This 109-nucleotide RNA sequence from Ruminococcus sp. CAG:330 belongs to the Rfam family "drum RNA".
The sequence is in the family's curated seed alignment.
RNA sequence: AAGUGAUGAUGCGUGUGAUGUUCCAAGAGACAGUGCACGGCUGAGCUUGAUAAGGGUUGUACAUUUACCAAAACUUGGAUAGGCGGAAUGCCGAAAGAAAAUGUUCCGG
Numbered sequence: 001a002a003g004u005g006a007u008g009a010u011g012c013g014u015g016u017g018a019u020g021u022u023c024c025a026a027g028a029g030a031c032a033g034u035g036c037a038c039g040g041c042u043g044a045g046c047u048u049g050a051u052a053a054g055g056g057u058u059g060u061a062c063a064u065u066u067a068c069c070a071a072a073a074c075u076u077g078g079a080u081a082g083g084c085g086g087a088a089u090g091c092c093g094a095a096a097g098a099a100a101a102u103g104u105u106c107c108g109g
Base pairs, nucleotide, nucleotide: 001048002047003046004045011041012040013038014037015036016035017034019032020031021030023078024077025076026075061104062103063102082092083091084090085089
About this RNA:
The family's RNA type in Rfam is small RNA. Firmicutes, Bacteroidetes (1 example), Proteobacteria (2 examples), Spirochaetes (2 examples).